RNA sequence: GUAGCCGACGACGUCUGUGUGCUGCGCGAGAACGGCUUGUCGCUCUCCUGUGCGCUUUUCACUGUAAUAGUCGGCAAGA
Numbered sequence: 001g002u003a004g005c006c007g008a009c010g011a012c013g014u015c016u017g018u019g020u021g022c023u024g025c026g027c028g029a030g031a032a033c034g035g036c037u038u039g040u041c042g043c044u045c046u047c048c049u050g051u052g053c054g055c056u057u058u059u060c061a062c063u064g065u066a067a068u069a070g071u072c073g074g075c076a077a078g079a
Stems, first nucleotide, its partner, number of pairs: 004075006017062003023054001